[Rfam]
RNA sequence: UAACCCGUGUCGAAAGGCACGGCUGAGCCGGCAGGAGUCAGCAGAAGGCAUAGUACCCUAGGUGUCAUGGACUCUGGGGGGAAGGCC
Numbered sequence: 001u002a003a004c005c006c007g008u009g010u011c012g013a014a015a016g017g018c019a020c021g022g023c024u025g026a027g028c029c030g031g032c033a034g035g036a037g038u039c040a041g042c043a044g045a046a047g048g049c050a051u052a053g054u055a056c057c058c059u060a061g062g063u064g065u066c067a068u069g070g071a072c073u074c075u076g077g078g079g080g081g082a083a084g085g086c087c
Stems, first nucleotide, its partner, number of pairs: 001025002005022007038045002047087003056080003060075003
RNA: Group II catalytic intron D1-D4-1
Organism: Thermacetogenium phaeum